The family of this 75-nucleotide RNA from Cnephaeus nilssonii is "mir-9223 microRNA precursor family".
Gene Ontology terms of the family: miRNA-mediated post-transcriptional gene silencing and RISC complex.
Pairs were carried over by alignment from the consensus structure, which was predicted with RNAalifold.
A search with the family's covariance model found it, with a score of 84 bits.

RNA sequence: GGAGGUUCUCUGGUGAUGCACCCCAGAAUCAGGCUCCCUUCUCUCUGGUUCUGGGUGCAUCACCCAAGAACAGCA
Numbered sequence: 001g002g003a004g005g006u007u008c009u010c011u012g013g014u015g016a017u018g019c020a021c022c023c024c025a026g027a028a029u030c031a032g033g034c035u036c037c038c039u040u041c042u043c044u045c046u047g048g049u050u051c052u053g054g055g056u057g058c059a060u061c062a063c064c065c066a067a068g069a070a071c072a073g074c075a
Stems, first nucleotide, its partner, number of pairs: 002074001005071005012064006019057005025052009